[Rfam]
The family of this 170-nucleotide part of an RNA from Hepatocystis sp. ex Piliocolobus tephrosceles is "Eukaryotic small subunit ribosomal RNA". A reference for the family is Yusupov et al. (2001), "Crystal structure of the ribosome at 5.5 A resolution", Science. Its Rfam clan is "SSU clan".
RNA sequence: CACCGCCCGUCGCUCCUACCGAUUGAAAGAUAGGAUGAAUUGUUCGGACAAGAACUUAAUCAAGGGAUAUUUUUUUUGAUUUUGUUUUGGAAGAACUGUUAAUCCUAUCUUUUAAAGGAAGGAGAAGUCGUAACAAGGUUUCCGUAGGUGAACCUGCGGAAGGAUCAUAC
Numbered sequence: 001c002a003c004c005g006c007c008c009g010u011c012g013c014u015c016c017u018a019c020c021g022a023u024u025g026a027a028a029g030a031u032a033g034g035a036u037g038a039a040u041u042g043u044u045c046g047g048a049c050a051a052g053a054a055c056u057u058a059a060u061c062a063a064g065g066g067a068u069a070u071u072u073u074u075u076u077u078g079a080u081u082u083u084g085u086u087u088u089g090g091a092a093g094a095a096c097u098g099u100u101a102a103u104c105c106u107a108u109c110u111u112u113u114a115a116a117g118g119a120a121g122g123a124g125a126a127g128u129c130g131u132a133a134c135a136a137g138g139u140u141u142c143c144g145u146a147g148g149u150g151a152a153c154c155u156g157c158g159g160a161a162g163g164a165u166c167a168u169a170c
Stems, first nucleotide, its partner, number of pairs: 003137001005134001008130002011127001013124005019118002023114001025113012039099002042096004049089005055084001058081002061078006139162010